[Rfam]
RNA sequence: GGGGCUGUUUUUGGAUUCGACAAAGUUAUCAAAAAAGUAAAGUGCAUGCCGAGGAACGGUUUGCCUCGAUAAAAAACCGUAAAAAAAUAGCUGCAAAUAAUAAACAAAACUACGCUUUAGCAGCUUAAAAAACUGUAUAAAGCCCUUUCAUCUCUGACUUCUCUCUUGAGAACGAGAAAUUUUUAAGAAAGGCCGACAUUUAAAGAGAAAAAUGUGAGCACUAUGCUUGAUAGUGACACAAAAUUAAUUUUUCAAGCUAUAAGCUUAAAAUGAGUUUUUCCAAAUUAAGCAAUGAAAAAAUAAAGAAAAACUAAGCAUGUAGUAUCUUUAUUUAUAGAAAUUUUGGACGCGGGUUCAAAUCCCGCCAGCUCCAAAA
Numbered sequence: 001g002g003g004g005c006u007g008u009u010u011u012u013g014g015a016u017u018c019g020a021c022a023a024a025g026u027u028a029u030c031a032a033a034a035a036a037g038u039a040a041a042g043u044g045c046a047u048g049c050c051g052a053g054g055a056a057c058g059g060u061u062u063g064c065c066u067c068g069a070u071a072a073a074a075a076a077c078c079g080u081a082a083a084a085a086a087a088u089a090g091c092u093g094c095a096a097a098u099a100a101u102a103a104a105c106a107a108a109a110c111u112a113c114g115c116u117u118u119a120g121c122a123g124c125u126u127a128a129a130a131a132a133c134u135g136u137a138u139a140a141a142g143c144c145c146u147u148u149c150a151u152c153u154c155u156g157a158c159u160u161c162u163c164u165c166u167u168g169a170g171a172a173c174g175a176g177a178a179a180u181u182u183u184u185a186a187g188a189a190a191g192g193c194c195g196a197c198a199u200u201u202a203a204a205g206a207g208a209a210a211a212a213u214g215u216g217a218g219c220a221c222u223a224u225g226c227u228u229g230a231u232a233g234u235g236a237c238a239c240a241a242a243a244u245u246a247a248u249u250u251u252u253c254a255a256g257c258u259a260u261a262a263g264c265u266u267a268a269a270a271u272g273a274g275u276u277u278u279u280c281c282a283a284a285u286u287a288a289g290c291a292a293u294g295a296a297a298a299a300a301u302a303a304a305g306a307a308a309a310a311c312u313a314a315g316c317a318u319g320u321a322g323u324a325u326c327u328u329u330a331u332u333u334a335u336a337g338a339a340a341u342u343u344u345g346g347a348c349g350c351g352g353g354u355u356c357a358a359a360u361c362c363c364g365c366c367a368g369c370u371c372c373a374a375a376a
Stems, first nucleotide, its partner, number of pairs: 001372007021345007029337001034333003039328002042325002045319005050068005056080006116141004120136004144192006151177004158170002162208006213240004225257005260295001262293001266289001272311001275308001277307003349365005

transfer-messenger RNA: a 376-nucleotide sequence from Buchnera aphidicola. Its family is annotated with RNA catabolic process in the Gene Ontology. About the family: Bacterial tmRNA, also known as 10Sa RNA or SsrA, is named for its dual tRNA and mRNA-like properties.